[Rfam]
Nucleotides: 086
Stems, first nucleotide, its partner, number of pairs: 004052009015041002017074005026037004065079003
Number, partner (000 for none) and nucleotide at each position: 001000a002000c003000a004052u005051g006050u007049c008048c009047a010046u011045a012044c013000a014000a015041c016040u017074g018073g019072c020071g021070g022000a023000u024000a025000a026037g027036u028035g029034g030000g031000u032000a033000a034029c035028c036027a037026c038000a039000u040016g041015g042000g043000a044012g045011u046010a047009u048008g049007g050006a051005u052004g053000a054000a055000u056000a057000u058000a059000u060000g061000u062000u063000g064000a065079g066078u067077c068000g069000a070021c071020c072019g073018c074017c075000u076000g077067g078066g079065c080000a081000a082000c083000c084000g085000c086000u